RNA: mir-8799 microRNA precursor family
Organism: Canis lupus
RNA sequence: GGGGUGUGCAGGAUCCUGGGCUGUGUCCCCCAGCGCCAUGGGAUCCGGAGCCUGUGCUGCUGGAAUCAUGCUCCUAGGCCCUUGCAGCACUCU
Numbered sequence: 001g002g003g004g005u006g007u008g009c010a011g012g013a014u015c016c017u018g019g020g021c022u023g024u025g026u027c028c029c030c031c032a033g034c035g036c037c038a039u040g041g042g043a044u045c046c047g048g049a050g051c052c053u054g055u056g057c058u059g060c061u062g063g064a065a066u067c068a069u070g071c072u073c074c075u076a077g078g079c080c081c082u083u084g085c086a087g088c089a090c091u092c093u
Stems, first nucleotide, its partner, number of pairs: 001093006008085002010082003015078002018074003022070004026064002030062001031059006040052001042051001044049001